[Rfam]
RNA: mir-23 microRNA precursor family
RNA sequence: GGGUUCUUGGCAUGCUGAUUUGUGACUGUAGUAAAAAAAAAUCACAUUGCCAGGGAUUACC
Numbered sequence: 001g002g003g004u005u006c007u008u009g010g011c012a013u014g015c016u017g018a019u020u021u022g023u024g025a026c027u028g029u030a031g032u033a034a035a036a037a038a039a040a041a042u043c044a045c046a047u048u049g050c051c052a053g054g055g056a057u058u059a060c061c
Stems, first nucleotide, its partner, number of pairs: 001061002003057010013046002016044006
Dot-bracket structure: ((((((((((((((.((((((.................)))))))).))))))))))..))